[Rfam]
RNA: Hepatitis C virus J7880 RNA
RNA sequence: AUUAAGCUAGCUGCCUCCACGGUUAGCGCCAGGCUUCUCACGAUCGAGGAAGCAUGCGCGCUGACCCCUCCCCAUUCCGCUAGAUCAAAAUACGGAUUCGGGGCAAAGGAGGUUCGCAGCUUA
Numbered sequence: 001a002u003u004a005a006g007c008u009a010g011c012u013g014c015c016u017c018c019a020c021g022g023u024u025a026g027c028g029c030c031a032g033g034c035u036u037c038u039c040a041c042g043a044u045c046g047a048g049g050a051a052g053c054a055u056g057c058g059c060g061c062u063g064a065c066c067c068c069u070c071c072c073c074a075u076u077c078c079g080c081u082a083g084a085u086c087a088a089a090a091u092a093c094g095g096a097u098u099c100g101g102g103g104c105a106a107a108g109g110a111g112g113u114u115c116g117c118a119g120c121u122u123a
Stems, first nucleotide, its partner, number of pairs: 006120003013113006022065004028057002032053001035050005068103004074097004079091001